[Rfam]
RNA sequence: GGUUUGCGUUGGUGCAAAUCCAAUCAACUCAAUUUUCAAAAUUGAAGAUGAUCAAAAAUUUAUCAUUGGUAACGAAUGCUUAUCCAUUAAACGAGCAAAUACU
Numbered sequence: 001g002g003u004u005u006g007c008g009u010u011g012g013u014g015c016a017a018a019u020c021c022a023a024u025c026a027a028c029u030c031a032a033u034u035u036u037c038a039a040a041a042u043u044g045a046a047g048a049u050g051a052u053c054a055a056a057a058a059u060u061u062a063u064c065a066u067u068g069g070u071a072a073c074g075a076a077u078g079c080u081u082a083u084c085c086a087u088u089a090a091a092c093g094a095g096c097a098a099a100u101a102c103u
Stems, first nucleotide, its partner, number of pairs: 009023004063094002065087002068084005

This 103-nucleotide RNA sequence from Memecylon pauciflorum belongs to the Rfam family "Plastid-rps12 3UTR RNA". Lineage of the source: Eukaryota > Streptophyta > Spermatophyta > Olisbeoideae > Memecylon. The family has 1,299 seed sequences and 1,710 matches in Rfam 15.1.